[Rfam]
RNA sequence: GCCAAAUGAUGUGAAACAAGUGACAUCAGCACUCUGUGCAAUGCUGACUUCCAUCUAUCACCCAUUACUGAUGGCU
Dot-bracket structure: ((((........................((((...))))................................)))).

Shown here is a 76-nucleotide RNA sequence from Crocodylus porosus, a member of the family "Small nucleolar RNA SNORD83".
Its family is annotated with RNA processing and nucleolus in the Gene Ontology.
The family's RNA type in Rfam is C/D-box small nucleolar RNA.
It scores 67 bits against the family's covariance model.
The family has 7 seed sequences and 1,393 matches in Rfam 15.1.
Lineage of the source: Eukaryota > Teleostomi > Sauria > Archelosauria > Crocodylus.